[Rfam]
Nucleotides: 079
Base pairs, nucleotide, nucleotide: 003052004051005050006049007048008047009046010045011044012043015040016039017067018066019065020064021063025036026035027034028033058072059071060070
Number, partner (000 for none) and nucleotide at each position: 001000g002000a003052a004051g005050g006049u007048a008047g009046g010045u011044g012043u013000g014000a015040c016039u017067g018066g019065c020064g021063u022000a023000a024000c025036g026035u027034g028033g029000a030000g031000a032000a033028c034027c035026a036025c037000g038000a039016g040015g041000g042000a043012g044011c045010a046009c047008c048007u049006a050005u051004u052003u053000c054000a055000u056000a057000a058072g059071c060070c061000g062000u063021a064020c065019g066018c067017c068000u069000g070060g071059g072058c073000g074000a075000a076000g077000c078000a079000u
About this RNA: ZMP/ZTP riboswitch aptamer (pfl RNA motif): a 79-nucleotide RNA sequence from Cohnella thailandensis. The family's consensus secondary structure is taken from published work. NCBI's taxonomy places the organism under Bacteria, Bacillota, Bacilli, Paenibacillaceae, Cohnella.